The record is a 111-nucleotide sequence from Carya illinoinensis, which matches "Plastid-rps12 3UTR RNA" in Rfam. About the family: Plastid rpl20 is a non-coding RNA (ncRNA) recognised in plastids.
[Rfam]
RNA sequence: GGUUUCUAUUGGUGUAAAUCGUAAAUCCAAGCAUCUCAAUUUUCAAUUUAAGAUGAAAAAGCAUUUCCCAUUGGUAGCAAAUGGUUAUCCAUUAAGCAGGGAAAAUAUUAU
Numbered sequence: 001g002g003u004u005u006c007u008a009u010u011g012g013u014g015u016a017a018a019u020c021g022u023a024a025a026u027c028c029a030a031g032c033a034u035c036u037c038a039a040u041u042u043u044c045a046a047u048u049u050a051a052g053a054u055g056a057a058a059a060a061g062c063a064u065u066u067c068c069c070a071u072u073g074g075u076a077g078c079a080a081a082u083g084g085u086u087a088u089c090c091a092u093u094a095a096g097c098a099g100g101g102a103a104a105a106u107a108u109u110a111u
Base pairs, nucleotide, nucleotide: 009030010029011028012027066101067100068099070092071091073089074088075087076086077085078084